[Rfam]
RNA sequence: AAGCCUUUUAAAACAGUCCCGUGAGGCUGAAAAAGGAACUAGAUGCAUGUGGACGGUAUACGUGUAUCCAGACCCUUUAUUCCUCCCGGAGAAUAAAGGGUUUUUUCCA
Numbered sequence: 001a002a003g004c005c006u007u008u009u010a011a012a013a014c015a016g017u018c019c020c021g022u023g024a025g026g027c028u029g030a031a032a033a034a035g036g037a038a039c040u041a042g043a044u045g046c047a048u049g050u051g052g053a054c055g056g057u058a059u060a061c062g063u064g065u066a067u068c069c070a071g072a073c074c075c076u077u078u079a080u081u082c083c084u085c086c087c088g089g090a091g092a093a094u095a096a097a098g099g100g101u102u103u104u105u106u107c108c109a
Base pairs, nucleotide, nucleotide: 004036005035006034007033008032009031014029015028016027017026018025042068043067044066045065046064047063048062049061050060051059053057070103071102072101073100074099075098076097077096078095079094080093081092082091

Rfam assigns this 109-nucleotide RNA sequence from Gracilibacillus ureilyticus to the family "PyrR binding site". The base pairs follow the family's consensus structure, which is taken from published work. For this family Rfam cites "Molecular recognition of pyr mRNA by the Bacillus subtilis attenuation regulatory protein PyrR" (Bonner et al., Nucleic Acids Res, 2001). The source organism's lineage runs through Bacteria, Bacilli, Caryophanales, Bacillaceae and Gracilibacillus.